[Rfam]
RNA sequence: CACAACCGUAGUUGUGGAUUUCAGGGUCUAACUUUGAUCAUCCGUCUUAUUUAAAAUAUUUUUAUGAUUAGUAUUUUUAUUGUUAUUAGAUGAUAAAAUAUGAAUAGUACUUUAUGCGUGAUUUAACUUUUAAAAUUUUUUUAUAAAUUUUUUAAAUAAGACAGACGAUUAAAUAUUGAGUACGAAAAUUUAUGGCGACACUUAUA
Numbered sequence: 001c002a003c004a005a006c007c008g009u010a011g012u013u014g015u016g017g018a019u020u021u022c023a024g025g026g027u028c029u030a031a032c033u034u035u036g037a038u039c040a041u042c043c044g045u046c047u048u049a050u051u052u053a054a055a056a057u058a059u060u061u062u063u064a065u066g067a068u069u070a071g072u073a074u075u076u077u078u079a080u081u082g083u084u085a086u087u088a089g090a091u092g093a094u095a096a097a098a099u100a101u102g103a104a105u106a107g108u109a110c111u112u113u114a115u116g117c118g119u120g121a122u123u124u125a126a127c128u129u130u131u132a133a134a135a136u137u138u139u140u141u142u143a144u145a146a147a148u149u150u151u152u153u154a155a156a157u158a159a160g161a162c163a164g165a166c167g168a169u170u171a172a173a174u175a176u177u178g179a180g181u182a183c184g185a186a187a188a189u190u191u192a193u194g195g196c197g198a199c200a201c202u203u204a205u206a
Stems, first nucleotide, its partner, number of pairs: 027180001029178003033173007041165002044162007
The family of this 206-nucleotide sequence from Oryza sativa is "MIR812 microRNA precursor family". Lineage of the source: Eukaryota > Streptophytina > Spermatophyta > Liliopsida > Oryza sativa. The family has 22 seed sequences and 57,451 matches in Rfam 15.1. The base pairs follow the family's consensus structure, which was predicted with RNAalifold. Its family is annotated with miRNA-mediated post-transcriptional gene silencing and RISC complex in the Gene Ontology.